[Rfam]
RNA sequence: GCUGAAAUAGCAAAGUGGUUAAUGCAAAAGACUUAGGAUUUUUCAUCGAAGGUUCAACUCCUUCUUUCAGCU
Numbered sequence: 001g002c003u004g005a006a007a008u009a010g011c012a013a014a015g016u017g018g019u020u021a022a023u024g025c026a027a028a029a030g031a032c033u034u035a036g037g038a039u040u041u042u043u044c045a046u047c048g049a050a051g052g053u054u055c056a057a058c059u060c061c062u063u064c065u066u067u068c069a070g071c072u
Stems, first nucleotide, its partner, number of pairs: 001071007010025003027043005048064005

Shown here is a 72-nucleotide sequence, a member of the family "tRNA". Pairs were carried over by alignment from the consensus structure, which is taken from published work. The family's RNA type in Rfam is transfer RNA. Its family is annotated with triplet codon-amino acid adaptor activity in the Gene Ontology.